[Rfam]
RNA sequence: GGAGAGGUGGCCGAGCCGGUCGAAGGCAGCCGCCUGCUAAGCGGUUGUGGGGGUAAGACCUCACCCAGGGUUCGAAUCCCUGCCUCUCCG
Numbered sequence: 001g002g003a004g005a006g007g008u009g010g011c012c013g014a015g016c017c018g019g020u021c022g023a024a025g026g027c028a029g030c031c032g033c034c035u036g037c038u039a040a041g042c043g044g045u046u047g048u049g050g051g052g053g054u055a056a057g058a059c060c061u062c063a064c065c066c067a068g069g070g071u072u073c074g075a076a077u078c079c080c081u082g083c084c085u086c087u088c089c090g
Base pairs, nucleotide, nucleotide: 001089002088003087004086005085006084007083010027011026012025029045030044031043032042033041066082067081068080069079070078
Dot-bracket structure: (((((((..(((............))).(((((.......)))))....................(((((.......)))))))))))).